The record is a 90-nucleotide sequence from Oryzias melastigma, which matches "mir-7 microRNA precursor family" in Rfam. It scores 70 bits against the family's covariance model. About the family: This family represents the microRNA (miRNA) precursor mir-7. The family has 132 seed sequences and 2,589 matches in Rfam 15.1. Its family is annotated with miRNA-mediated post-transcriptional gene silencing and RISC complex in the Gene Ontology.
RNA sequence: CGUGUGCCACGCUCUGGAAGACUAGUGAUUUUGUUGUUGUAAAUGUGUGUUUUUGACAACAAGUCACAGUCUACCUCAGUGCUUCACACC
Numbered sequence: 001c002g003u004g005u006g007c008c009a010c011g012c013u014c015u016g017g018a019a020g021a022c023u024a025g026u027g028a029u030u031u032u033g034u035u036g037u038u039g040u041a042a043a044u045g046u047g048u049g050u051u052u053u054u055g056a057c058a059a060c061a062a063g064u065c066a067c068a069g070u071c072u073a074c075c076u077c078a079g080u081g082c083u084u085c086a087c088a089c090c
Stems, first nucleotide, its partner, number of pairs: 002089005010081004016075002019072005025067007033060006